Shown here is a 209-nucleotide RNA sequence from Cettia cetti, a member of the family "Small nucleolar RNA SNORA74".
Rfam's curators write: U19 belongs to the H/ACA class of snoRNAs. snoRNAs bind a number of proteins (including dyskerin, Gar1p and Nop10p in the case of the H/ACA class) to form snoRNP complexes. This class are thought to guide the sites of modification of uridines to pseudouridines by forming direct base pairing interactions with substrate RNAs. Targets may include ribosomal and spliceosomal RNAs but the exact functions of many snoRNAs, including U19, are not confirmed. Co-precipitation of U19 snoRNA with RNase MRP RNA suggests that U19 may be involved in pre-rRNA processing.
NCBI's taxonomy places the organism under Eukaryota, Metazoa, Bilateria, Australaves, Cettia.
Its family is annotated with nucleolus and RNA processing in the Gene Ontology.
Pairs were carried over by alignment from the consensus structure, which was predicted with PFOLD.

RNA sequence: UCCAGUGGUAGUCAGCUGUCCAGAGCAAUACUGUGCCUGGGAUAGUGUUACACUGCUGGGAGAUAAAGCUCAGUCAUUCCUUCUGGCUGCUGCUGUCACUGUUCUGGAGACAGCUGGCAAGACAGCCAGCAAGAAGUGGCAUUGUGCUUCCCUGAGAGCGCACUGAAGGUUCUCCUUCCCUCUUUAGUGCUAGUCUGGAAGCCUACACA
Numbered sequence: 001u002c003c004a005g006u007g008g009u010a011g012u013c014a015g016c017u018g019u020c021c022a023g024a025g026c027a028a029u030a031c032u033g034u035g036c037c038u039g040g041g042a043u044a045g046u047g048u049u050a051c052a053c054u055g056c057u058g059g060g061a062g063a064u065a066a067a068g069c070u071c072a073g074u075c076a077u078u079c080c081u082u083c084u085g086g087c088u089g090c091u092g093c094u095g096u097c098a099c100u101g102u103u104c105u106g107g108a109g110a111c112a113g114c115u116g117g118c119a120a121g122a123c124a125g126c127c128a129g130c131a132a133g134a135a136g137u138g139g140c141a142u143u144g145u146g147c148u149u150c151c152c153u154g155a156g157a158g159c160g161c162a163c164u165g166a167a168g169g170u171u172c173u174c175c176u177u178c179c180c181u182c183u184u185u186a187g188u189g190c191u192a193g194u195c196u197g198g199a200a201g202c203c204u205a206c207a208c209a
Stems, first nucleotide, its partner, number of pairs: 001060009011051002015046006021039003068142001073140004083129005088120001090116001092114001094112004099107002144204001146202006160190003164186006